[Rfam]
RNA sequence: CGACCACCGGGACGCGAUGAACCUCGGACCGUGCAACGGUCGCCCACCAAAGCCCUCCGGGGCUGGAGGUCCGAGGGGAGCGAGUGGCGAGACCGACCCGGACCG
Numbered sequence: 001c002g003a004c005c006a007c008c009g010g011g012a013c014g015c016g017a018u019g020a021a022c023c024u025c026g027g028a029c030c031g032u033g034c035a036a037c038g039g040u041c042g043c044c045c046a047c048c049a050a051a052g053c054c055c056u057c058c059g060g061g062g063c064u065g066g067a068g069g070u071c072c073g074a075g076g077g078g079a080g081c082g083a084g085u086g087g088c089g090a091g092a093c094c095g096a097c098c099c100g101g102a103c104c105g
Base pairs, nucleotide, nucleotide: 001105002104005101008100009099010098011097013082014081015080022076023075024074025073026072027071028070029069038094039093040090041089042088043087044086

c-di-GMP-II-GAG riboswitch aptamer: a 105-nucleotide sequence.
Its family is annotated with regulation of gene expression and cyclic-di-GMP binding in the Gene Ontology.
Clan: c-di-GMP_II riboswitch clan.